This 50-nucleotide RNA belongs to the Rfam family "L31-Gammaproteobacteria ribosomal protein leader". It is annotated as a cis-regulatory leader. On this family, see Eckert and Weinberg, BMC Microbiol 2020: "Discovery of 20 novel ribosomal leader candidates in bacteria and archaea".

RNA sequence: CGUGUGGUGUCCGGCUCAGAUUCGGAUAGCGACACGGCCUAAUUUGAGGU
Numbered sequence: 001c002g003u004g005u006g007g008u009g010u011c012c013g014g015c016u017c018a019g020a021u022u023c024g025g026a027u028a029g030c031g032a033c034a035c036g037g038c039c040u041a042a043u044u045u046g047a048g049g050u
Stems, first nucleotide, its partner, number of pairs: 001036005007030002011025004015019001
Dot-bracket structure: (((((.((..(((((...)..))))...)).)))))..............